RNA sequence: GAAUGAGAUGAUGAUGAUUUUUCUAGUUAUUUGAUGGCCGAUUUGAUGGCGAUUUAUCUUGUAUUAGCUCUAGCUGAUCGUUC
Numbered sequence: 001g002a003a004u005g006a007g008a009u010g011a012u013g014a015u016g017a018u019u020u021u022u023c024u025a026g027u028u029a030u031u032u033g034a035u036g037g038c039c040g041a042u043u044u045g046a047u048g049g050c051g052a053u054u055u056a057u058c059u060u061g062u063a064u065u066a067g068c069u070c071u072a073g074c075u076g077a078u079c080g081u082u083c
Base pairs, nucleotide, nucleotide: 002082003081004080005079033053037050038049039048
Shown here is an 83-nucleotide RNA sequence from Coffea canephora, a member of the family "Small nucleolar RNA Z102/R77". The source organism's lineage runs through Eukaryota, Euphyllophyta, Magnoliopsida, asterids and Coffea. Clan: SNORD44 clan. It is annotated as a C/D-box small nucleolar RNA.